[Rfam]
RNA sequence: GGCCUAAACCCGUCAUUCUUGGCGGGCAUGGCGUCAAAUCCGGUUAGGGAUGAAGAUCCCAUCGUUGAGGGUUCCCUAACCGGUCAUGCAGGGAAACUUGCAUGUUCUGCCCGAAAGGGCGGA
Number, nucleotide and partner (000 for none) at each position: 001g000002g032003c031004c030005u000006a000007a000008a000009c026010c025011c024012g023013u022014c021015a020016u000017u000018c000019u000020u015021g014022g013023c012024g011025g010026g009027c000028a000029u000030g004031g003032c002033g000034u000035c000036a000037a000038a000039u000040c083041c082042g081043g080044u079045u078046a077047g076048g075049g074050a073051u000052g000053a000054a000055g000056a072057u071058c070059c069060c000061a000062u000063c000064g000065u000066u000067g000068a000069g059070g058071g057072u056073u050074c049075c048076c047077u046078a045079a044080c043081c042082g041083g040084u000085c104086a103087u102088g101089c100090a099091g098092g097093g000094a000095a000096a000097c092098u091099u090100g089101c088102a087103u086104g085105u000106u123107c122108u121109g120110c119111c118112c000113g000114a000115a000116a000117g000118g111119g110120c109121g108122g107123a106